A member of the RNA family "Glycine riboswitch aptamer" from Williamsia sp. 1138, 95 nucleotides long. Taxonomically the source falls in Williamsia (Bacteria, Bacillati, Mycobacteriales, Nocardiaceae).

RNA sequence: CGCAGCGACCCGGGAGAGAGCCACACCAGAUGUGGCCGCCGAAGGAGCAAUACCUCUCCGUCAAACUCUCAGGCAUCAAGGACCGUGUCGUCGUC
Numbered sequence: 001c002g003c004a005g006c007g008a009c010c011c012g013g014g015a016g017a018g019a020g021c022c023a024c025a026c027c028a029g030a031u032g033u034g035g036c037c038g039c040c041g042a043a044g045g046a047g048c049a050a051u052a053c054c055u056c057u058c059c060g061u062c063a064a065a066c067u068c069u070c071a072g073g074c075a076u077c078a079a080g081g082a083c084c085g086u087g088u089c090g091u092c093g094u095c
Stems, first nucleotide, its partner, number of pairs: 006090004011085003020036004038074003041070002045068003052061002
Dot-bracket structure: .....((((.(((......((((.........)))).(((((..(((....((......))....))))).)))........))).)))).....